[Rfam]
RNA: mir-241 microRNA precursor family
Organism: Caenorhabditis briggsae
RNA sequence: AAAGCUGAGGUAGGUGUGAGAAAUGACGAAAGGCUCUUAAUCGUUUCAUUGUCUCGCAGCUGCUUCAACUGUG
Number, nucleotide and partner (000 for none) at each position: 001a000002a000003a000004g000005c000006u000007g066008a065009g064010g063011u062012a061013g060014g000015u058016g057017u000018g055019a054020g053021a052022a050023a049024u048025g047026a046027c000028g000029a000030a000031a000032g000033g000034c000035u000036c000037u000038u000039a000040a000041u000042c000043g000044u000045u000046u026047c025048a024049u023050u022051g000052u021053c020054u019055c018056g000057c016058a015059g000060c013061u012062g011063c010064u009065u008066c007067a000068a000069c000070u000071g000072u000073g000